The family of this 204-nucleotide RNA from Anopheles stephensi is "drz-agam-2-2 ribozyme". On this family, see Webb et al., Science 2009: "Widespread occurrence of self-cleaving ribozymes". The match comes from Rfam's covariance-model search (109 bits).

RNA sequence: UGCUACGUUUGCUAUGUUAAUGGGGUAGGAUCCGAGACUCCUUUCGGGGUUACACAGGCCCUACCCCUCCCCUACCCAAAUCCUUUACGGUUACGUCCUCGUCGUACAGAGUGGUAACUUUCCUCACCACAUAUCCAAGCUUGGGAACACAGGGCCUAUCCGAACCCCUUGGGCGGAUGGUGGAGCAAGGCUAAACAGUAGGGG
Numbered sequence: 001u002g003c004u005a006c007g008u009u010u011g012c013u014a015u016g017u018u019a020a021u022g023g024g025g026u027a028g029g030a031u032c033c034g035a036g037a038c039u040c041c042u043u044u045c046g047g048g049g050u051u052a053c054a055c056a057g058g059c060c061c062u063a064c065c066c067c068u069c070c071c072c073u074a075c076c077c078a079a080a081u082c083c084u085u086u087a088c089g090g091u092u093a094c095g096u097c098c099u100c101g102u103c104g105u106a107c108a109g110a111g112u113g114g115u116a117a118c119u120u121u122c123c124u125c126a127c128c129a130c131a132u133a134u135c136c137a138a139g140c141u142u143g144g145g146a147a148c149a150c151a152g153g154g155c156c157u158a159u160c161c162g163a164a165c166c167c168c169u170u171g172g173g174c175g176g177a178u179g180g181u182g183g184a185g186c187a188a189g190g191c192u193a194a195a196c197a198g199u200a201g202g203g204g
Stems, first nucleotide, its partner, number of pairs: 011112003015108003023077007032058002081204004086200002092195001093105003097114002118189003122185001125182004133178004141164002144161003166173002